[Rfam]
RNA sequence: GCCGGGCACGGUGGCGCACGCCUGUAGUCCCAGCUACUCCGGAGGCUGAGACAGGAGGAUUGCUUGAGUCCAGGAGUUCUGGGCUGUAGUGCGGAUCAGGUGUCCGCACUAAGUUCGGCAUCAAUAUGGUGACAUCCCGGGGACAGGGCACCACCAGGUUGCCUAAGGAGGGGUGAACCGGUUCAGGUCAGAAACGGAGCAGGUAAAAAUUCCCCGGGCUGAUCAGUAGUGGGAUCGCGCCUGUGAAUAGCCACUGCACUCCAGCCUGGGCAACACAGCGAGAACCCGUCUCUU
Dot-bracket structure: (((((((..(......)..))))....(((..........)))))).(((((.((....(((((...(((((((....(((((.((((((((....(((((((((.(((((.(.(((((.(((((.(((((...(((.(....).)))...))))).))))((...)).(((((......(((....((......))....)))....)).))).).))))).)..)))))))...))))))).)......))))))).)))))))))))).....)))))...)).)))))..
Annotation
Shown here is a 294-nucleotide RNA from Mus musculus, a member of the family "Metazoan signal recognition particle RNA". NCBI's taxonomy places the organism under Eukaryota, Gnathostomata, Muroidea, Mus, Mus. On this family, see Wild et al., Curr Opin Struct Biol 2002: "Towards the structure of the mammalian signal recognition particle". Pairs were carried over by alignment from the consensus structure, which is taken from published work. From the family's description: The signal recognition particle (SRP) is a universally conserved ribonucleoprotein. It is involved in the co-translational targeting of proteins to membranes. The eukaryotic SRP consists of a 300-nucleotide 7S RNA and six proteins: SRPs 72, 68, 54, 19, 14, and 9. Archaeal SRP consists of a 7S RNA and homologues of the eukaryotic SRP19 and SRP54 proteins. Eukaryotic and archaeal 7S RNAs have very similar secondary structures, as represented by this family. Eight helical elements fold into the Alu and S domains, separated by a long linker region. The Alu domain is thought to mediate the peptide chain elongation retardation function of the SRP. The universally conserved helix which interacts with the SRP54 M domain mediates signal sequence recognition. In eukaryotes and archaea, the SRP19-helix 6 complex is thought to be involved in SRP assembly and stabilises helix 8 for SRP54 binding. The Signal Recognition Particle Database (SRPDB) provides compilations of SRP components, with phylogenetic data and structural illustrations. Many sequences below the threshold for this family are clearly closely related, but are most likely to be SRP RNA derived pseudogenes. The human genome in particular is known to contain a large amount of SRP RNA related sequence, including Alu repeats. While the threshold of this family is set high so as to minimise the number of hits to such regions, it is likely that some remain. The family's RNA type in Rfam is non-coding RNA gene.